Overview:
Rfam assigns this 83-nucleotide RNA from Ideonella livida to the family "Group II catalytic intron D1-D4-1".

RNA sequence: CUGGGCGCUGGGAGACUGGCGCUGAAGGCCUGGGCAGAAGUCAGCAAAGGGCGUAGUAGGUGAAGGUCCUGUCACUGAAGGCC
Numbered sequence: 001c002u003g004g005g006c007g008c009u010g011g012g013a014g015a016c017u018g019g020c021g022c023u024g025a026a027g028g029c030c031u032g033g034g035c036a037g038a039a040g041u042c043a044g045c046a047a048a049g050g051g052c053g054u055a056g057u058a059g060g061u062g063a064a065g066g067u068c069c070u071g072u073c074a075c076u077g078a079a080g081g082c083c
Base pairs, nucleotide, nucleotide: 001027002026004023005022006021007020008019009018010017011016041048050083051082052081059076060075061074062073063072
Taxonomically the source falls in Ideonella (Bacteria, Pseudomonadati, Betaproteobacteria, Sphaerotilaceae).